[Rfam]
RNA sequence: AGGUUUCCUGCUUCAACACUGCUUGGACGGAACCCC
Numbered sequence: 001a002g003g004u005u006u007c008c009u010g011c012u013u014c015a016a017c018a019c020u021g022c023u024u025g026g027a028c029g030g031a032a033c034c035c036c
Stems, first nucleotide, its partner, number of pairs: 002035002005032004010028001012027005017021001
The family of this 36-nucleotide sequence from Balaenoptera musculus is "Iron response element I". The base pairs follow the family's consensus structure, which is taken from published work. The match comes from Rfam's covariance-model search (38 bits). It is annotated as a cis-regulatory element.